[Rfam]
RNA: Small Cajal body specific RNA 6
Organism: Carassius auratus
RNA sequence: GGUCAGUGAUGUGAUGUAAAAGGUCUGAUGUCCAGCCCUUCUUUCAGUCUUCUCGCCCUCCCAGCCUGCCCUGUUGAUUUUCCCAGCAUGCUCUAGUUGUGCAUCCCUGGUUUGAUGUGGCGGCUGAUAUAAUGGAUGUUUCUGCUGCAUAAAAGUUUUUCUAGAGAAUCCAGUGAGACUCUUGACAGAAGCAUCCCACAGAAACACGACACACAGGAGGGCUUGACUGAAUGAGGCUGGUCAGCUGAUCUCAAAAAUCAUUCUGAGACC
Dot-bracket structure: ((((..............................(..(....((((.((........(((((((((.((.............((((....(.........).....)))).........))))))).......(((((((.............((((((.((.........)).)))))).........)))))))...................)))).........)).))))...........)...)...............))))